[Rfam]
RNA sequence: CUUCAACGAGCCCAGCCACAAAGGCUGUUCACGAUCCUGCCCAUACGUCGCCAGCAGCGCCUGCGCCUC
Numbered sequence: 001c002u003u004c005a006a007c008g009a010g011c012c013c014a015g016c017c018a019c020a021a022a023g024g025c026u027g028u029u030c031a032c033g034a035u036c037c038u039g040c041c042c043a044u045a046c047g048u049c050g051c052c053a054g055c056a057g058c059g060c061c062u063g064c065g066c067c068u069c
Stems, first nucleotide, its partner, number of pairs: 014026004032059002037054003041050001043048001
This 69-nucleotide sequence from Wenjunlia tyrosinilytica belongs to the Rfam family "ASpks TB sRNA". The organism belongs to Wenjunlia, within Bacteria.